This 82-nucleotide sequence from Laodelphax striatellus belongs to the Rfam family "Small nucleolar RNA SNORD34".
Pairs were carried over by alignment from the consensus structure, which was predicted with PFOLD.
[Rfam]
RNA sequence: CAGCACCAAUGAUGUUCAUUAUUUACCUACAUUAUUUGAUAUAUAUUAUAUAAUAUGAUGAUAAUCUGAUUCUGAGGUGUUG
Dot-bracket structure: ((.((((....................................................................)))).))

Its Rfam clan is "SNORD34 clan". The match comes from Rfam's covariance-model search (44 bits). Rfam's curators write: snoRNA U34 is found in intron 5 of the ribosomal protein L13a gene in humans. A reference for the family is Galardi et al. (2002), "Purified box C/D snoRNPs are able to reproduce site-specific 2'-O-methylation of target RNA in vitro", Mol Cell Biol.